[Rfam]
RNA sequence: CGAUGACAUGUUGAGCAGGGUGAACGCCCUCUCCAACCUGCCCCGUCCGGGCAAGGUGGAUUCUGUUGCGAAACAGACAUGCGGCCGGCCGGCAACAAAACGGACUCAC
Numbered sequence: 001c002g003a004u005g006a007c008a009u010g011u012u013g014a015g016c017a018g019g020g021u022g023a024a025c026g027c028c029c030u031c032u033c034c035a036a037c038c039u040g041c042c043c044c045g046u047c048c049g050g051g052c053a054a055g056g057u058g059g060a061u062u063c064u065g066u067u068g069c070g071a072a073a074c075a076g077a078c079a080u081g082c083g084g085c086c087g088g089c090c091g092g093c094a095a096c097a098a099a100a101c102g103g104a105c106u107c108a109c
Stems, first nucleotide, its partner, number of pairs: 007081004015031001017030005032060003037056003040052003046103002084093003
The record is a 109-nucleotide sequence from Rubripirellula tenax, which matches "SAM-I/IV (S-adenosyl methionine) riboswitch aptamer" in Rfam. The family is grouped with related families in Rfam's "SAM clan". It scores 56 bits against the family's covariance model. Rfam links the family to the GO terms regulation of gene expression and S-adenosylmethionine metabolic process. On this family, see Weinberg et al., RNA 2008: "The aptamer core of SAM-IV riboswitches mimics the ligand-binding site of SAM-I riboswitches".